SAM riboswitch aptamer (S box leader): a 136-nucleotide RNA from Microlunatus kandeliicorticis. From the family's description: The SAM riboswitch is found upstream of a number of genes which code for proteins involved in methionine or cysteine biosynthesis in Gram-positive bacteria. NCBI's taxonomy places the organism under Bacteria, Bacillati, Actinomycetota, Actinomycetes, Microlunatus. The match comes from Rfam's covariance-model search (53 bits).

Nucleotides: 136
Base pairs, nucleotide, nucleotide: 004132005131006130007129012042013041014040015039016038020031021030022029025104026103027102028101043096044095045094046093048092049091050088052086053085100128105125106124107123108122109121110120111119112118
Number, partner (000 for none) and nucleotide at each position: 001000g002000u003000g004132c005131a006130u007129c008000c009000a010000g011000a012042g013041g014040g015039g016038g017000c018000g019000a020031g021030g022029g023000a024000u025104u026103c027102g028101g029022c030021c031020c032000g033000a034000u035000g036000a037000c038016c039015c040014u041013c042012c043096g044095g045094c046093a047000a048092c049091c050088g051000g052086c053085u054000g055000g056000c057000c058000g059000a060000g061000c062000g063000c064000u065000c066000c067000g068000a069000c070000u071000g072000g073000g074000g075000c076000g077000u078000u079000c080000c081000g082000g083000g084000c085053g086052g087000a088050c089000a090000c091049g092048g093046u094045g095044c096043c097000a098000a099000g100128u101028c102027c103026g104025a105125c106124u107123c108122g109121g110120c111119c112118g113000a114000a115000c116000g117000u118112c119111g120110g121109c122108c123107g124106g125105g126000a127000c128100a129007g130006a131005u132004g133000a134000c135000g136000a